A member of the RNA family "Glycine riboswitch aptamer" from Cribrihabitans marinus, 86 nucleotides long. Taxonomically the source falls in Cribrihabitans (Bacteria, Pseudomonadati, Pseudomonadota, Paracoccaceae). Rfam 15.1 lists 9,425 matches to the family in 5,228 species.
RNA sequence: CGACAGCAUACGGGAGAACCGGCAACGCCGGUGCCGAAGGAGCAACCGCCCCGGAAACUCUCAGGCACAAGGACCGUGUGCGGCAC
Numbered sequence: 001c002g003a004c005a006g007c008a009u010a011c012g013g014g015a016g017a018a019c020c021g022g023c024a025a026c027g028c029c030g031g032u033g034c035c036g037a038a039g040g041a042g043c044a045a046c047c048g049c050c051c052c053g054g055a056a057a058c059u060c061u062c063a064g065g066c067a068c069a070a071g072g073a074c075c076g077u078g079u080g081c082g083g084c085a086c
Base pairs, nucleotide, nucleotide: 006081007080008079009078010077011076012075013074019031020030021029022028033066034065035064036062037061040060041059042058046054047053